[Rfam]
RNA sequence: ACUAAUUAAAAAAACAAAGGGCGGGGAAUCCUGCCCUCCCGAUUGUUGCCACGGCGCGGACAGACUAUACGGCGGCUGGUCGUUCCCCAGCGGCCGCGAAUACCGAAACAGGCUGAGCAAUAAUCUUCGAGGGUAGCGCUGCUACCCUUUUUUUUCCAGGA
Numbered sequence: 001a002c003u004a005a006u007u008a009a010a011a012a013a014a015c016a017a018a019g020g021g022c023g024g025g026g027a028a029u030c031c032u033g034c035c036c037u038c039c040c041g042a043u044u045g046u047u048g049c050c051a052c053g054g055c056g057c058g059g060a061c062a063g064a065c066u067a068u069a070c071g072g073c074g075g076c077u078g079g080u081c082g083u084u085c086c087c088c089a090g091c092g093g094c095c096g097c098g099a100a101u102a103c104c105g106a107a108a109c110a111g112g113c114u115g116a117g118c119a120a121u122a123a124u125c126u127u128c129g130a131g132g133g134u135a136g137c138g139c140u141g142c143u144a145c146c147c148u149u150u151u152u153u154u155u156c157c158a159g160g161a
Stems, first nucleotide, its partner, number of pairs: 019036004023031002037132002040129002042124005048118002057105003061098001071095003075091005
Description: The family of this 161-nucleotide RNA from Klebsiella michiganensis is "sroC RNA". This family consists of a number of bacterial sroC RNA genes of around 160 bases in length. sroC is found in several Enterobacterial species. It base-pairs with GcvB. This interaction triggers the degradation of GcvB by RNase E, alleviating the GcvB-mediated mRNA repression of other amino acid-related transport and metabolic genes. It scores 150 bits against the family's covariance model.